Shown here is an 84-nucleotide sequence from Argiope bruennichi, a member of the family "HDV ribozyme from F. prausnitzii". For this family Rfam cites "Widespread occurrence of self-cleaving ribozymes" (Webb et al., Science, 2009). Rfam links the family to the GO term catalytic activity. Lineage of the source: Eukaryota > Metazoa > Eumetazoa > Araneidae > Argiope. Rfam 15.1 lists 3,803 matches to the family in 91 species. A search with the family's covariance model found it, with a score of 51 bits.

RNA sequence: GGGGAACGAAAGUAGCCCACCUCCACGUGGUGUUCCCUGGGCAACGGUGCAGUUCUCUGGAAUUGUACCGGCUAAGAGGCUACU
Number, nucleotide and partner (000 for none) at each position: 001g038002g037003g036004g035005a034006a033007c032008g000009a000010a000011a000012g000013u000014a000015g000016c000017c000018c000019a031020c030021c029022u000023c000024c000025a000026c000027g000028u000029g021030g020031u019032g007033u006034u005035c004036c003037c002038u001039g000040g000041g000042c000043a000044a000045c070046g069047g068048u067049g066050c065051a064052g063053u062054u061055c060056u000057c000058u000059g000060g055061a054062a053063u052064u051065g050066u049067a048068c047069c046070g045071g000072c000073u000074a000075a000076g000077a000078g000079g000080c000081u000082a000083c000084u000